[Rfam]
RNA: Eukaryotic large subunit ribosomal RNA, nucleotides 444 to 766
RNA sequence: GGAUUAAGAGAGAAAAAAAGUAAAGUGGAAUUUUAUAAAUCUUCUCCGGAAGUUUUAUUUUUUUCUGCUUUAUUAAAAGGAACAUCAGCGAACCCGGAUAAUUAAGAUAAAACAAUUUCCUGAAGUUGCCGGGAAUAUCUAAUAUUUCCUGCUCUUCACUUAGUCCUUACUCUAAUGUCUGGACAACUGGUUUUAUAAAAACUUCUUACUCAAAAGGGGAAUUAUCCUAUUUGCUGAGGAAAAUAAAAAUUGCCGGGACUUGUCCCGACAGUUUGAGUUGUUUCUAUACAAUACUUUCUUAACCCACUCGUCUUGAAACACGG
Numbered sequence: 001g002g003a004u005u006a007a008g009a010g011a012g013a014a015a016a017a018a019a020g021u022a023a024a025g026u027g028g029a030a031u032u033u034u035a036u037a038a039a040u041c042u043u044c045u046c047c048g049g050a051a052g053u054u055u056u057a058u059u060u061u062u063u064u065c066u067g068c069u070u071u072a073u074u075a076a077a078a079g080g081a082a083c084a085u086c087a088g089c090g091a092a093c094c095c096g097g098a099u100a101a102u103u104a105a106g107a108u109a110a111a112a113c114a115a116u117u118u119c120c121u122g123a124a125g126u127u128g129c130c131g132g133g134a135a136u137a138u139c140u141a142a143u144a145u146u147u148c149c150u151g152c153u154c155u156u157c158a159c160u161u162a163g164u165c166c167u168u169a170c171u172c173u174a175a176u177g178u179c180u181g182g183a184c185a186a187c188u189g190g191u192u193u194u195a196u197a198a199a200a201a202c203u204u205c206u207u208a209c210u211c212a213a214a215a216g217g218g219g220a221a222u223u224a225u226c227c228u229a230u231u232u233g234c235u236g237a238g239g240a241a242a243a244u245a246a247a248a249a250u251u252g253c254c255g256g257g258a259c260u261u262g263u264c265c266c267g268a269c270a271g272u273u274u275g276a277g278u279u280g281u282u283u284c285u286a287u288a289c290a291a292u293a294c295u296u297u298c299u300u301a302a303c304c305c306a307c308u309c310g311u312c313u314u315g316a317a318a319c320a321c322g323g
Stems, first nucleotide, its partner, number of pairs: 001305002004302009017074001020073007078285007308323004